Rfam assigns this 108-nucleotide sequence from Coffea arabica to the family "Small nucleolar RNA Z279/snoR105/snoR108".
For this family Rfam cites "Experimental RNomics: identification of 140 candidates for small non-messenger RNAs in the plant Arabidopsis thaliana" (Marker et al., Curr Biol, 2002).
The family is grouped with related families in Rfam's "snoU13 clan".
Rfam describes the family as follows. This family includes the plant snoRNAs known as Z279, snoR105 and snoR108.
The organism belongs to Coffea, within Eukaryota.

RNA sequence: GGGAUGUGAUGAGCGGUCAAAGCUCGCAUUUAAACAUGCGAGAUGGGUGCCCGGCCCAAAGCCUGGUUACGACAACCCGGGCGCUCCCAUAUUUACCAAUCUGAUCCC
Dot-bracket structure: ((((..........(((.....(((((..........)))))..(((((((............((((.......)).)))))))))........))).......))))